The family of this 55-nucleotide RNA is "L31-Gammaproteobacteria ribosomal protein leader". It is one of the family's seed sequences. The base pairs follow the family's consensus structure, which is taken from published work. By type it is a cis-regulatory leader.
[Rfam]
Nucleotides: 055
Stems, first nucleotide, its partner, number of pairs: 001036005007030002011025004015020001
Number, partner (000 for none) and nucleotide at each position: 001036c002035g003034u004033g005032u006000g007030g008029u009000g010000u011025c012024u013023g014022g015020c016000a017000u018000a019000g020015g021000a022014u023013c024012a025011g026000a027000u028000a029008g030007c031000g032005a033004c034003a035002c036001g037000g038000c039000c040000u041000a042000c043000a044000a045000a046000a047000c048000a049000c050000a051000g052000a053000g054000g055000u